MIR162_1 microRNA precursor family: a 104-nucleotide RNA sequence from Cicer arietinum. The family is grouped with related families in Rfam's "MIR167 microRNA precursor clan". The base pairs follow the family's consensus structure, which was predicted with RNAalifold.
RNA sequence: GGUGAAGUCACUGGAGGCAGCGGUUCAUCGAUCUGUUCCUGAAUUUGUUUGUGUAAUACAAAACAAUAAUUGGUCGAUAAACCUCUGCAUCCAGCGCUCACUUU
Numbered sequence: 001g002g003u004g005a006a007g008u009c010a011c012u013g014g015a016g017g018c019a020g021c022g023g024u025u026c027a028u029c030g031a032u033c034u035g036u037u038c039c040u041g042a043a044u045u046u047g048u049u050u051g052u053g054u055a056a057u058a059c060a061a062a063a064c065a066a067u068a069a070u071u072g073g074u075c076g077a078u079a080a081a082c083c084u085c086u087g088c089a090u091c092c093a094g095c096g097c098u099c100a101c102u103u104u
Base pairs, nucleotide, nucleotide: 013092014091015090018087019086020085022083023082024081025080027078028077029076030075031074032073033072036069037068